[Rfam]
RNA sequence: UGAAAUUGAAUAUGUUUACCGUAGACAGUAGGUGCCUAGUGCUUAAUUUCCUACCGAGGUGUUGUGAUAGAAUGUCAGCAUGAUGCAGUUCUCUGCAAUGUUGAAUCGUCAAGCCUUCGUGAUUCUACGGAGGCUUUUUUCAUGAAAUG
Number, nucleotide and partner (000 for none) at each position: 001u000002g000003a000004a000005a000006u000007u000008g000009a000010a000011u000012a000013u000014g000015u000016u000017u000018a000019c000020c000021g000022u000023a000024g000025a000026c000027a000028g054029u053030a052031g051032g050033u000034g042035c041036c000037u000038a000039g000040u000041g035042c034043u000044u000045a000046a000047u000048u000049u000050c032051c031052u030053a029054c028055c000056g000057a000058g000059g000060u000061g000062u000063u000064g000065u000066g000067a000068u000069a000070g000071a000072a000073u000074g000075u000076c000077a000078g000079c000080a000081u000082g000083a000084u000085g000086c000087a000088g000089u000090u000091c000092u000093c000094u000095g000096c000097a000098a000099u000100g000101u000102u000103g000104a000105a000106u000107c000108g000109u000110c000111a000112a000113g134114c133115c132116u131117u130118c129119g128120u127121g126122a000123u000124u000125c000126u121127a120128c119129g118130g117131a116132g115133g114134c113135u000136u000137u000138u000139u000140u000141c000142a000143u000144g000145a000146a000147a000148u000149g000

Background: The family of this 149-nucleotide sequence from Fontibacillus panacisegetis is "Ribosomal protein L10 leader". Rfam classes the family as a cis-regulatory leader. This family is a putative r-protein leader autoregulatory structure found in B. subtilis and other low-GC Gram-positive bacteria. It is located in the 5' untranslated regions of mRNAs encoding ribosomal proteins L10 and L12 (rplJ-rplL). A Rho-independent transcription terminator structure that is probably involved in regulation is included at the 3' end. The family's consensus secondary structure was predicted with CMfinder. A search with the family's covariance model found it, with a score of 76 bits.